A member of the RNA family "pan motif" from Anaeromicrobium sediminis, 97 nucleotides long.
The organism belongs to Anaeromicrobium, within Bacteria.
The match comes from Rfam's covariance-model search (54 bits).
RNA sequence: UGGAUAGUAUCGAAAGAACUAUACCUUAGAUUUAUAAAAUAAUAACUAAAUAUUAUGAAAUACACUCUGCGCGGAUCUUUUAGACCGGGACUGAAAA
Dot-bracket structure: .(((((((.((....))))))).)).........................................(.((.(((.(((...)))))).).).)....
Numbered sequence: 001u002g003g004a005u006a007g008u009a010u011c012g013a014a015a016g017a018a019c020u021a022u023a024c025c026u027u028a029g030a031u032u033u034a035u036a037a038a039a040u041a042a043u044a045a046c047u048a049a050a051u052a053u054u055a056u057g058a059a060a061u062a063c064a065c066u067c068u069g070c071g072c073g074g075a076u077c078u079u080u081u082a083g084a085c086c087g088g089g090a091c092u093g094a095a096a097a
Stems, first nucleotide, its partner, number of pairs: 002025002004022005010017002067093001069091001070089001072087003076084003